[Rfam]
RNA: Class I RNA from Dictyostelium
Organism: Poecile atricapillus
Nucleotides: 059
Base pairs, nucleotide, nucleotide: 001057002056003055004054006052
Number, partner (000 for none) and nucleotide at each position: 001057g002056a003055a004054g005000u006052c007000c008000u009000u010000a011000c012000a013000g014000c015000a016000a017000u018000c019000a020000a021000u022000g023000a024000a025000a026000u027000a028000a029000c030000a031000a032000a033000a034000a035000a036000u037000u038000u039000a040000a041000a042000a043000a044000a045000a046000a047000a048000u049000u050000a051000u052006g053000u054004c055003u056002u057001c058000u059000g